This 265-nucleotide RNA sequence from Paenibacillus montanisoli belongs to the Rfam family "Bacterial large signal recognition particle RNA". The family's RNA type in Rfam is non-coding RNA gene. Its Rfam clan is "SRP clan". Lineage of the source: Bacteria > Bacillota > Bacilli > Paenibacillaceae > Paenibacillus.
[Rfam]
RNA sequence: CCGUGCUAGACGGGGAGGUAGCGGUGCCCUGUAGCUCGCAAUCCGCUGUAGCGAGGUUGAAUCCCUAUCUUAGGUUAUGUCGAUGUGGGGCUGGUGUCCAUGAACAGUGUUGACGGUCGGGUCCUCCGCAAUGGGCGCCUGUGAACGGGUCAGGUCCGGAAGGAAGCAGCCAUAAGCAGGUCCGCUCAUGUGCCGGAGGGGUGCUUGACCUGAGCUGGGAGUGGAAGUGCCGCUCAUGUCGCAUCAAUCGAGGGUAGGUGCACGG
Numbered sequence: 001c002c003g004u005g006c007u008a009g010a011c012g013g014g015g016a017g018g019u020a021g022c023g024g025u026g027c028c029c030u031g032u033a034g035c036u037c038g039c040a041a042u043c044c045g046c047u048g049u050a051g052c053g054a055g056g057u058u059g060a061a062u063c064c065c066u067a068u069c070u071u072a073g074g075u076u077a078u079g080u081c082g083a084u085g086u087g088g089g090g091c092u093g094g095u096g097u098c099c100a101u102g103a104a105c106a107g108u109g110u111u112g113a114c115g116g117u118c119g120g121g122u123c124c125u126c127c128g129c130a131a132u133g134g135g136c137g138c139c140u141g142u143g144a145a146c147g148g149g150u151c152a153g154g155u156c157c158g159g160a161a162g163g164a165a166g167c168a169g170c171c172a173u174a175a176g177c178a179g180g181u182c183c184g185c186u187c188a189u190g191u192g193c194c195g196g197a198g199g200g201g202u203g204c205u206u207g208a209c210c211u212g213a214g215c216u217g218g219g220a221g222u223g224g225a226a227g228u229g230c231c232g233c234u235c236a237u238g239u240c241g242c243a244u245c246a247a248u249c250g251a252g253g254g255u256a257g258g259u260g261c262a263c264g265g
Stems, first nucleotide, its partner, number of pairs: 001265006009058003012030004017025001019023001035055005064258007073249004081241009093231002097225005105218001106216003115210008123199006129190002132188005137181006148171003155164003